Description: DUF3800-I RNA: a 109-nucleotide sequence. From the family's description: Actinobacteria, Firmicutes, Fusobacteria, Proteobacteria (1 example), Tenericutes (2 examples). It is one of the family's seed sequences.
RNA sequence: UAUAGUUGCAGGUAGAGAUACGCUGUAUACCUAUGUGCCUGAAUUAGCGUUUAAGCGGUAUGUAAUGCCGUCAGACAUAGGGACCACCUAAGGGUGGUUUUUUGCUAUA
Numbered sequence: 001u002a003u004a005g006u007u008g009c010a011g012g013u014a015g016a017g018a019u020a021c022g023c024u025g026u027a028u029a030c031c032u033a034u035g036u037g038c039c040u041g042a043a044u045u046a047g048c049g050u051u052u053a054a055g056c057g058g059u060a061u062g063u064a065a066u067g068c069c070g071u072c073a074g075a076c077a078u079a080g081g082g083a084c085c086a087c088c089u090a091a092g093g094g095u096g097g098u099u100u101u102u103u104g105c106u107a108u109a
Base pairs, nucleotide, nucleotide: 007027008026009025010024011023012021013020014019030081031080032079033078034077035076039074040073041072042051043050044049055071056070057069058068059067060066082099083098084097085096086095087094088093